Notes
The record is a 104-nucleotide RNA sequence from Niallia endozanthoxylica, which matches "SAM riboswitch aptamer (S box leader)" in Rfam. About the family: The SAM riboswitch is found upstream of a number of genes which code for proteins involved in methionine or cysteine biosynthesis in Gram-positive bacteria. For this family Rfam cites "The S box regulon: a new global transcription termination control system for methionine and cysteine biosynthesis genes in gram-positive bacteria" (Grundy and Henkin, Mol Microbiol, 1998).
RNA sequence: AACUUAUCCAGAGCGACCGAGGGAGAAGGCCCUAUGACGUCCGGCAACCCCCAUUGGGAAGGUGCCAAUUCCUCCAGAAUGACUUUCAUUCUGAAAGAUAAGUC
Numbered sequence: 001a002a003c004u005u006a007u008c009c010a011g012a013g014c015g016a017c018c019g020a021g022g023g024a025g026a027a028g029g030c031c032c033u034a035u036g037a038c039g040u041c042c043g044g045c046a047a048c049c050c051c052c053a054u055u056g057g058g059a060a061g062g063u064g065c066c067a068a069u070u071c072c073u074c075c076a077g078a079a080u081g082a083c084u085u086u087c088a089u090u091c092u093g094a095a096a097g098a099u100a101a102g103u104c
Stems, first nucleotide, its partner, number of pairs: 002103007013042001015041003021032003027073003043066004048062002050058003070096001075093006